[Rfam]
RNA sequence: AUCACCUGGAGAUUUUGUUGAAAUGUAGAUUCUGAUUCAGUGGGCUUGGAGUAGAACAUAAGAAUCUGCAUUUCUAACAAGCUUCCAGGUGACGGUGA
Number, nucleotide and partner (000 for none) at each position: 001a000002u000003c091004a090005c089006c000007u000008g000009g085010a084011g083012a000013u000014u081015u080016u079017g078018u077019u076020g075021a073022a072023a071024u000025g069026u068027a067028g066029a065030u000031u063032c062033u061034g000035a000036u000037u000038c000039a000040g000041u000042g000043g000044g000045c000046u000047u000048g000049g000050a000051g000052u000053a000054g000055a000056a000057c000058a000059u000060a000061a033062g032063a031064a000065u029066c028067u027068g026069c025070a000071u023072u022073u021074c000075u020076a019077a018078c017079a016080a015081g014082c000083u011084u010085c009086c000087a000088g000089g005090u004091g003092a000093c000094g000095g000096u000097g000098a000
RNA: mir-544 microRNA precursor family